The record is a 94-nucleotide RNA sequence from Nyctereutes procyonoides, which matches "mir-8799 microRNA precursor family" in Rfam.
Pairs were carried over by alignment from the consensus structure, which was predicted with RNAalifold.
RNA sequence: AGGGGAUCACCAGAUCCUGGGCUUUGUCACCCGGGGCCCUGGGGUCCGAGGCCUGCGCCGCUGGAAUCGCUCUCCCAGGGCCGCGCAUUCCCCU
Numbered sequence: 001a002g003g004g005g006a007u008c009a010c011c012a013g014a015u016c017c018u019g020g021g022c023u024u025u026g027u028c029a030c031c032c033g034g035g036g037c038c039c040u041g042g043g044g045u046c047c048g049a050g051g052c053c054u055g056c057g058c059c060g061c062u063g064g065a066a067u068c069g070c071u072c073u074c075c076c077a078g079g080g081c082c083g084c085g086c087a088u089u090c091c092c093c094u
Stems, first nucleotide, its partner, number of pairs: 001094006010085001011083001013081001016079002019075003025069002027065002031063001032060003036056002041053001043052001045050001

Background
Rfam links the family to the GO terms miRNA-mediated post-transcriptional gene silencing and RISC complex. The source organism's lineage runs through Eukaryota, Craniata, Eutheria, Caniformia and Nyctereutes.